[Rfam]
RNA sequence: GGGGGUGGACGGGUCCUGGUGGGCCUCCUGGUCUUCAAAACCAGCUGACGGGCCAAAAGUCCGUGGUGGGUUCGAUUCCCACGCACUCCC
Numbered sequence: 001g002g003g004g005g006u007g008g009a010c011g012g013g014u015c016c017u018g019g020u021g022g023g024c025c026u027c028c029u030g031g032u033c034u035u036c037a038a039a040a041c042c043a044g045c046u047g048a049c050g051g052g053c054c055a056a057a058a059g060u061c062c063g064u065g066g067u068g069g070g071u072u073c074g075a076u077u078c079c080c081a082c083g084c085a086c087u088c089c090c
Base pairs, nucleotide, nucleotide: 001090002089003088004087005086006085007084008082011026012025013024014023015022016021028044029043030042031041032040048064049063050062051061052060067081068080069079070078
The record is a 90-nucleotide RNA sequence from Thermodesulfitimonas autotrophica, which matches "Selenocysteine transfer RNA" in Rfam.
It scores 71 bits against the family's covariance model.
Lineage of the source: Bacteria > Bacillota > Clostridia > Thermoanaerobacterales > Thermodesulfitimonas.